[Rfam]
RNA sequence: ACAUGAGAAGGGAGGUGAUCCGAGCAGUGAAGACUCUUCGGACCCAUGAGGUGGUCGCGCGCUAGGUCGCGCGUCUGAGCCAGCUUCGCGCCGUCAGGCGCGCGGACCGGUUGCGAUUCCCACGCGACCACCGGAGCCCGCGGGUGCCGUGCCCUCGUCCAGCACGGCAGCAGGAGUCACCCUGCAGCCCGCGGGCUCUUUCGU
Number, nucleotide and partner (000 for none) at each position: 001a000002c000003a000004u000005g000006a000007g000008a000009a000010g000011g000012g000013a000014g000015g058016u057017g056018a055019u054020c000021c000022g000023a000024g000025c000026a000027g000028u000029g000030a000031a000032g000033a000034c000035u000036c000037u000038u000039c000040g000041g000042a000043c000044c000045c000046a000047u000048g000049a000050g000051g000052u000053g000054g019055u018056c017057g016058c015059g000060c115061g114062c113063u110064a000065g108066g107067u000068c104069g103070c102071g101072c000073g099074u098075c097076u096077g095078a000079g000080c000081c000082a000083g000084c000085u000086u000087c000088g000089c000090g000091c000092c000093g000094u000095c077096a076097g075098g074099c073100g000101c071102g070103c069104g068105g000106a000107c066108c065109g000110g063111u000112u000113g062114c061115g060116a000117u000118u000119c000120c000121c000122a000123c000124g000125c000126g000127a000128c000129c000130a000131c000132c000133g000134g198135a197136g196137c195138c194139c193140g192141c191142g190143g189144g188145u187146g000147c167148c166149g165150u164151g163152c162153c000154c000155u000156c000157g000158u000159c000160c000161a000162g152163c151164a150165c149166g148167g147168c000169a000170g000171c000172a000173g000174g000175a000176g000177u000178c000179a000180c000181c000182c000183u000184g000185c000186a000187g145188c144189c143190c142191g141192c140193g139194g138195g137196c136197u135198c134199u000200u000201u000202c000203g000204u000
The family of this 204-nucleotide RNA from Isoptericola variabilis is "Actinobacteria sRNA Ms_IGR-5".
A search with the family's covariance model found it, with a score of 65 bits.